SAM riboswitch aptamer (S box leader): an 88-nucleotide RNA sequence from Prauserella isguenensis.

RNA sequence: AUUCCAUCCCGAGCGACCGAGAGACCUGGCUCGUCGACGUCGCAGCAACCUCCCUCGAGGACGGUGCUACCGCCAGGAGCGAUGGAGG
Numbered sequence: 001a002u003u004c005c006a007u008c009c010c011g012a013g014c015g016a017c018c019g020a021g022a023g024a025c026c027u028g029g030c031u032c033g034u035c036g037a038c039g040u041c042g043c044a045g046c047a048a049c050c051u052c053c054c055u056c057g058a059g060g061a062c063g064g065u066g067c068u069a070c071c072g073c074c075a076g077g078a079g080c081g082a083u084g085g086a087g088g
Stems, first nucleotide, its partner, number of pairs: 002087007013043005021032003026076004044068004049064002051060002072080001

Rfam's curators write: The SAM riboswitch is found upstream of a number of genes which code for proteins involved in methionine or cysteine biosynthesis in Gram-positive bacteria. Taxonomically the source falls in Prauserella (Bacteria, Bacillati, Pseudonocardiales, Pseudonocardiaceae).